This 78-nucleotide RNA sequence from Schistosoma mansoni belongs to the Rfam family "mir-3492 microRNA precursor family". Rfam links the family to the GO terms miRNA-mediated post-transcriptional gene silencing and RISC complex. Lineage of the source: Eukaryota > Platyhelminthes > Strigeidida > Schistosomatidae > Schistosoma. Pairs were carried over by alignment from the consensus structure, which was predicted with RNAalifold.
RNA sequence: AGCUUUUUGAAUCCGUGCCGAGAUUUCGUCAGACACCAACUCAAUAGGACUGAUUAGACUUCGAAGAUAAGUGAAGUU
Numbered sequence: 001a002g003c004u005u006u007u008u009g010a011a012u013c014c015g016u017g018c019c020g021a022g023a024u025u026u027c028g029u030c031a032g033a034c035a036c037c038a039a040c041u042c043a044a045u046a047g048g049a050c051u052g053a054u055u056a057g058a059c060u061u062c063g064a065a066g067a068u069a070a071g072u073g074a075a076g077u078u
Stems, first nucleotide, its partner, number of pairs: 002077005008071001011068003016063002020061003024058003028054003